The family of this 73-nucleotide RNA sequence from Lactobacillus iners is "tRNA".
A search with the family's covariance model found it, with a score of 64 bits.
[Rfam]
RNA sequence: UGGGUUGUAGCCAAAUUGGUAAGGCGGGGGACUCUGAAUCCCUAAUGUAUCGGUUCGAGCCCGGUCAACCCAA
Numbered sequence: 001u002g003g004g005u006u007g008u009a010g011c012c013a014a015a016u017u018g019g020u021a022a023g024g025c026g027g028g029g030g031a032c033u034c035u036g037a038a039u040c041c042c043u044a045a046u047g048u049a050u051c052g053g054u055u056c057g058a059g060c061c062c063g064g065u066c067a068a069c070c071c072a073a
Base pairs, nucleotide, nucleotide: 001072002071003070004069005068006067007066010025011024012023027043028042029041030040031039049065050064051063052062053061